[Rfam]
Shown here is a 57-nucleotide sequence from Citrobacter rodentium, a member of the family "ClpQY promoter".
By type it is a cis-regulatory element.
Rfam links the family to the GO term mRNA stabilization.
The literature on the family includes a 2009 paper in Open Microbiol J by Lien et al., "Regulation of clpQ(+)Y(+) (hslV(+)U(+)) gene expression in Escherichia coli".
The source organism's lineage runs through Bacteria, Pseudomonadota, Enterobacterales, Citrobacter and Citrobacter rodentium.
RNA sequence: CCCCGUACACCGUGCGGGGCCUUUAUUCUGCAUUUGUAACCAAGGGGUCUGCUCGUG
Numbered sequence: 001c002c003c004c005g006u007a008c009a010c011c012g013u014g015c016g017g018g019g020c021c022u023u024u025a026u027u028c029u030g031c032a033u034u035u036g037u038a039a040c041c042a043a044g045g046g047g048u049c050u051g052c053u054c055g056u057g
Stems, first nucleotide, its partner, number of pairs: 001019008